Shown here is a 129-nucleotide RNA sequence from Nocardia vermiculata, a member of the family "ALIL pseudoknot". A reference for the family is Mazauric et al. (2008), "Apical loop-internal loop RNA pseudoknots: a new type of stimulator of -1 translational frameshifting in bacteria", J Biol Chem. Pairs were carried over by alignment from the consensus structure, which is taken from published work.
RNA sequence: GGCUUUUUUCGCGCGGGAACUCGACCCGCGACACCGCUGAUCGUCGGAUUCAUCGACGAAUACCGCCAGGUCUUCGGCGUCGAGUCGAUCUGCCGCGCACUGUCGAUGCACGGAGUCCAGAUCGCGCCC
Numbered sequence: 001g002g003c004u005u006u007u008u009u010c011g012c013g014c015g016g017g018a019a020c021u022c023g024a025c026c027c028g029c030g031a032c033a034c035c036g037c038u039g040a041u042c043g044u045c046g047g048a049u050u051c052a053u054c055g056a057c058g059a060a061u062a063c064c065g066c067c068a069g070g071u072c073u074u075c076g077g078c079g080u081c082g083a084g085u086c087g088a089u090c091u092g093c094c095g096c097g098c099a100c101u102g103u104c105g106a107u108g109c110a111c112g113g114a115g116u117c118c119a120g121a122u123c124g125c126g127c128c129c
Stems, first nucleotide, its partner, number of pairs: 013029005076128004086124002089121004